Small nucleolar RNA SNORA68: a 131-nucleotide sequence from Erinaceus europaeus. Its family is annotated with RNA processing and nucleolus in the Gene Ontology. The organism belongs to Erinaceus, within Eukaryota.
RNA sequence: UCUGUGCCUAAAAUCAAGGACCAUUACUUACUGUACUAGUGGUUCAAAUGCAGGUGCUAACUGCAAAGUGGACCUCAUUGCUUUUGGAGGACUGUCUGUGCCCCUCAGGUGAAUUUAGAGGUUCUACACAC
Numbered sequence: 001u002c003u004g005u006g007c008c009u010a011a012a013a014u015c016a017a018g019g020a021c022c023a024u025u026a027c028u029u030a031c032u033g034u035a036c037u038a039g040u041g042g043u044u045c046a047a048a049u050g051c052a053g054g055u056g057c058u059a060a061c062u063g064c065a066a067a068g069u070g071g072a073c074c075u076c077a078u079u080g081c082u083u084u085u086g087g088a089g090g091a092c093u094g095u096c097u098g099u100g101c102c103c104c105u106c107a108g109g110u111g112a113a114u115u116u117a118g119a120g121g122u123u124c125u126a127c128a129c130a131c
Stems, first nucleotide, its partner, number of pairs: 004057006019044008028035001070124007083109005089103002092100001